[Rfam]
RNA sequence: UUUACCUCAAGCAUAAAGAUGUCAUCCAAGUAGCCAACACUGGGAUCCAGAAAAAUUGACUAUAAACAAGUAUGCUGUUUCGAUGAAAUUGUGUAAUAGAAACUAGAUUCCAGUGUCAGCUACUUGCAUGACACCAAGUUUGUGUUUAUA
Dot-bracket structure: ..........(((((....((((((.((((((((..(((((((((((.((....................................................)).)))))))))))..)))))))).)))))).......))))).....
Source information:
A member of the RNA family "Wolbachia sRNA 46", 150 nucleotides long. The literature on the family includes a 2014 paper in Proc Natl Acad Sci U S A by Mayoral et al., "Wolbachia small noncoding RNAs and their role in cross-kingdom communications". It is annotated as a small RNA. Pairs were carried over by alignment from the consensus structure.